RNA sequence: UGGUAGAUGCACCCUGAUAACUCACCCCCUAGUUGGCUUACACCACUGGGGGUUUUUUAU
Numbered sequence: 001u002g003g004u005a006g007a008u009g010c011a012c013c014c015u016g017a018u019a020a021c022u023c024a025c026c027c028c029c030u031a032g033u034u035g036g037c038u039u040a041c042a043c044c045a046c047u048g049g050g051g052g053u054u055u056u057u058u059a060u
Stems, first nucleotide, its partner, number of pairs: 002013003026052007034045003
Shown here is a 60-nucleotide RNA sequence from Tolypothrix sp. NIES-4075, a member of the family "Nitrogen stress-induced RNA 1". A reference for the family is Ionescu et al. (2010), "Heterocyst-specific transcription of NsiR1, a non-coding RNA encoded in a tandem array of direct repeats in cyanobacteria", J Mol Biol. It scores 69 bits against the family's covariance model.